[Rfam]
RNA sequence: CGACCGCCACAGGGCCUCCCGCCCCGUGGCCAAGGCCACACGGACAGCCGGGUCGAAUGCCGA
Numbered sequence: 001c002g003a004c005c006g007c008c009a010c011a012g013g014g015c016c017u018c019c020c021g022c023c024c025c026g027u028g029g030c031c032a033a034g035g036c037c038a039c040a041c042g043g044a045c046a047g048c049c050g051g052g053u054c055g056a057a058u059g060c061c062g063a
Stems, first nucleotide, its partner, number of pairs: 001055005006030005
Streptococcus sRNA SpF59 (ldcC RNA): a 63-nucleotide RNA sequence from Firmicutes bacterium CAG:114. A reference for the family is Mann et al. (2012), "Control of virulence by small RNAs in Streptococcus pneumoniae", PLoS Pathog. The family's consensus secondary structure was predicted with mfold.